[Rfam]
RNA sequence: AUGAUAGUUGUGGGAGAGUGCGGAAACGCCGCCGACGGAGCAAGUUUCAAAAGCCUUGAAACGAAUCUCUCAGGCACAUGGACCACAAUUGGACG
Number, nucleotide and partner (000 for none) at each position: 001a000002u000003g000004a000005u000006a090007g089008u088009u087010g086011u085012g084013g083014g000015a000016g000017a000018g000019u000020g029021c028022g027023g000024a000025a000026a000027c022028g021029c020030c000031g075032c074033c073034g071035a070036c000037g000038g069039a068040g067041c000042a000043a000044g062045u061046u060047u059048c058049a057050a056051a000052a000053g000054c000055c000056u050057u049058g048059a047060a046061a045062c044063g000064a000065a000066u000067c040068u039069c038070u035071c034072a000073g033074g032075c031076a000077c000078a000079u000080g000081g000082a000083c013084c012085a011086c010087a009088a008089u007090u006091g000092g000093a000094c000095g000
Record summary:
Rfam assigns this 95-nucleotide sequence from Domibacillus iocasae to the family "Glycine riboswitch aptamer". The source organism's lineage runs through Bacteria, Bacillati, Caryophanales, Bacillaceae and Domibacillus. The match comes from Rfam's covariance-model search (66 bits).